[Rfam]
RNA: Glycine riboswitch aptamer
Organism: Rhodoglobus vestalii
RNA sequence: CCACUCUGGAAAGAGAAUCUCGAAACAUCAGGAGGUUCCGCCGACGGUGAAAGCGCACUAGCUUAAAAGUGCGUGAAGCUCUCAGGCUCAUCACAGAGGGGGA
Numbered sequence: 001c002c003a004c005u006c007u008g009g010a011a012a013g014a015g016a017a018u019c020u021c022g023a024a025a026c027a028u029c030a031g032g033a034g035g036u037u038c039c040g041c042c043g044a045c046g047g048u049g050a051a052a053g054c055g056c057a058c059u060a061g062c063u064u065a066a067a068a069g070u071g072c073g074u075g076a077a078g079c080u081c082u083c084a085g086g087c088u089c090a091u092c093a094c095a096g097a098g099g100g101g102g103a
Stems, first nucleotide, its partner, number of pairs: 001101002004098005015038007040087003043083002047081001049079001053074007